Rfam assigns this 138-nucleotide sequence from Miscanthus lutarioriparius to the family "Small nucleolar RNA Z247". NCBI's taxonomy places the organism under Eukaryota, Spermatophyta, Panicoideae, Andropogonodae, Miscanthus. Rfam 15.1 lists 7,071 matches to the family in 142 species. The family's consensus secondary structure was predicted with PFOLD.
[Rfam]
RNA sequence: CCCCUUGAAGAUGAAGAGCUUGUUUAGUACAUACUGAUGGGGCUUGAUAUGGAGUUCAAUUCCAUUGUGCAUGCCAUCCUCACUGUCCUGAACCAAUCACGUUUAGCGAGUUGUACACCUAGCUGCUUAGUUUCAAGU
Number, nucleotide and partner (000 for none) at each position: 001c000002c000003c000004c137005u136006u135007g134008a133009a000010g000011a000012u000013g000014a000015a000016g000017a000018g000019c000020u000021u000022g000023u000024u000025u000026a000027g000028u000029a000030c000031a000032u000033a000034c000035u000036g000037a000038u000039g000040g000041g000042g000043c000044u000045u000046g000047a000048u000049a000050u000051g000052g000053a000054g000055u000056u000057c000058a000059a000060u000061u000062c000063c000064a000065u000066u000067g000068u000069g000070c000071a000072u000073g000074c000075c000076a000077u000078c000079c000080u000081c000082a000083c000084u000085g000086u000087c000088c106089u105090g104091a103092a102093c000094c000095a000096a000097u000098c000099a000100c000101g000102u092103u091104u090105a089106g088107c000108g000109a000110g000111u000112u000113g000114u000115a000116c000117a000118c000119c000120u000121a000122g000123c000124u000125g000126c000127u000128u000129a000130g000131u000132u000133u008134c007135a006136a005137g004138u000
The family's RNA type in Rfam is C/D-box small nucleolar RNA.